[Rfam]
RNA sequence: ACCCUUGUGUUAAGGUGCAUCUAGUGCAGUUAGUGAAUUAGCCUAGAAUCUGCUGCGCUGGGUGCUCCUUCUGGCAUAAGGU
Dot-bracket structure: ...((((.(((.(((.(((((((((((.(.(((................))).)))))))))))).)))...))).))))..
Rfam assigns this 82-nucleotide sequence from Polypterus senegalus to the family "mir-17 microRNA precursor family". The organism belongs to Polypterus, within Eukaryota. About the family: This family represents the microRNA (miRNA) precursor mir-17, family, which includes mir-20, mir-91, and mir-103. miRNAs are transcribed as ~70nt precursors (modelled here) and subsequently processed by the Dicer enzyme to give a ~22nt product. In this case the mature sequence comes from the 3' arm of the precursor. The extents of the hairpin precursors are not generally known and are estimated based on hairpin prediction. The family's consensus secondary structure was predicted with RNAalifold. A reference for the family is Lagos-Quintana et al. (2001), "Identification of novel genes coding for small expressed RNAs", Science.